Mitochondrial DNA control region secondary structure A: a 114-nucleotide sequence from Papio anubis. Lineage of the source: Eukaryota > Simiiformes > Catarrhini > Cercopithecinae > Papio. By type it is an antisense RNA. Rfam 15.1 lists 795 matches to the family in 62 species. The literature on the family includes a 2008 paper in Mol Biol Evol by Pereira et al., "Evidence for variable selective pressures at a large secondary structure of the human mitochondrial DNA control region". The base pairs follow the family's consensus structure, which is taken from published work.
[Rfam]
RNA sequence: UUUUUUUCUCAGCACACACUUUGACUAUCAUGUCCGUACUAAUCAAGUAGCACUACUGCAUUAGUGCUCUUAUGUACUUUGUGCAUUACUGCUAGUCUCGAUGAAUAAUACACA
Numbered sequence: 001u002u003u004u005u006u007u008c009u010c011a012g013c014a015c016a017c018a019c020u021u022u023g024a025c026u027a028u029c030a031u032g033u034c035c036g037u038a039c040u041a042a043u044c045a046a047g048u049a050g051c052a053c054u055a056c057u058g059c060a061u062u063a064g065u066g067c068u069c070u071u072a073u074g075u076a077c078u079u080u081g082u083g084c085a086u087u088a089c090u091g092c093u094a095g096u097c098u099c100g101a102u103g104a105a106u107a108a109u110a111c112a113c114a
Base pairs, nucleotide, nucleotide: 005105006104007103009101010100012097017091018090023034024033025032026030036067037066039064040063041062042061072086073085074084075083076082